[Rfam]
RNA sequence: CGCCAGGCUAUCCCGAUGGGGAGAAAAGCGGAUUCCUUCACAGCCAGCCUGGUGCCCCAUUUUAUGAGGG
Number, nucleotide and partner (000 for none) at each position: 001c054002g053003c052004c051005a050006g049007g048008c047009u000010a000011u022012c021013c020014c019015g000016a000017u000018g000019g014020g013021g012022a011023g000024a000025a000026a000027a000028g044029c043030g000031g041032a000033u000034u000035c070036c069037u068038u067039c066040a065041c031042a000043g029044c028045c000046a000047g008048c007049c006050u005051g004052g003053u002054g001055c000056c000057c000058c000059a000060u000061u000062u000063u000064a000065u040066g039067a038068g037069g036070g035
Shown here is a 70-nucleotide RNA sequence from Pseudorhodobacter sp., a member of the family "int-alpA RNA". Lineage of the source: Bacteria > Pseudomonadota > Alphaproteobacteria > Rhodobacterales > Pseudorhodobacter. Acidobacteria (1 example), Planctomycetes (1 example), Proteobacteria. The match comes from Rfam's covariance-model search (51 bits). Rfam classes the family as a small RNA. The base pairs follow the family's consensus structure, which is taken from published work.